The family of this 64-nucleotide sequence from Tetraodon nigroviridis is "mir-8/mir-141/mir-200 microRNA precursor family". A reference for the family is Lagos-Quintana et al. (2003), "New microRNAs from mouse and human", RNA. Rfam links the family to the GO terms miRNA-mediated post-transcriptional gene silencing and RISC complex. Rfam 15.1 lists 2,669 matches to the family in 883 species. The organism belongs to Tetraodon, within Eukaryota.

[Rfam]
RNA sequence: CCAUCUUACGAGGCAGCAUUGGAUAGCAUCACUUUUUCUAAUACUGCCUGGUAAUGAUGAUGAU
Numbered sequence: 001c002c003a004u005c006u007u008a009c010g011a012g013g014c015a016g017c018a019u020u021g022g023a024u025a026g027c028a029u030c031a032c033u034u035u036u037u038c039u040a041a042u043a044c045u046g047c048c049u050g051g052u053a054a055u056g057a058u059g060a061u062g063a064u
Base pairs, nucleotide, nucleotide: 002059003058004057005056006054007053008052009051011049012048013047014046015045016044018042019041020040021039022038023037